[Rfam]
RNA: mir-31 microRNA precursor family
RNA sequence: GACAGGAAAGAUGGCAAUAUGUUGGCAUAGCAGGUUCUCAGUUCAACAGCUAUGCCAGCAUCUUGCCUCCUCUCCAGUUC
Numbered sequence: 001g002a003c004a005g006g007a008a009a010g011a012u013g014g015c016a017a018u019a020u021g022u023u024g025g026c027a028u029a030g031c032a033g034g035u036u037c038u039c040a041g042u043u044c045a046a047c048a049g050c051u052a053u054g055c056c057a058g059c060a061u062c063u064u065g066c067c068u069c070c071u072c073u074c075c076a077g078u079u080c
Stems, first nucleotide, its partner, number of pairs: 005075003009071002013067005019061003023057009